[Rfam]
RNA: Aar sRNA
RNA sequence: UUUAACUCUUACUUACACACUAUUACUUUAAACACAAUGAAUGAUCUUAAUCAUAUCGCUAUAUUAGCAAUCAAGGAAUACGGUGCAACACUGACCUAAAGCCUAACUCUUUACCGAAGCUGUGCAAGCAGAUUCGUUGUUCUACGCAAUGAUCACCCCAAUCAUUGCGUAUUUUUUUGUCCAAAAUUCGUG
Numbered sequence: 001u002u003u004a005a006c007u008c009u010u011a012c013u014u015a016c017a018c019a020c021u022a023u024u025a026c027u028u029u030a031a032a033c034a035c036a037a038u039g040a041a042u043g044a045u046c047u048u049a050a051u052c053a054u055a056u057c058g059c060u061a062u063a064u065u066a067g068c069a070a071u072c073a074a075g076g077a078a079u080a081c082g083g084u085g086c087a088a089c090a091c092u093g094a095c096c097u098a099a100a101g102c103c104u105a106a107c108u109c110u111u112u113a114c115c116g117a118a119g120c121u122g123u124g125c126a127a128g129c130a131g132a133u134u135c136g137u138u139g140u141u142c143u144a145c146g147c148a149a150u151g152a153u154c155a156c157c158c159c160a161a162u163c164a165u166u167g168c169g170u171a172u173u174u175u176u177u178u179g180u181c182c183a184a185a186a187u188u189c190g191u192g
Stems, first nucleotide, its partner, number of pairs: 013053001015051001019048001022045002026039001028037001065192002070187002075182003079099001080097001082096003115136004120131004144170010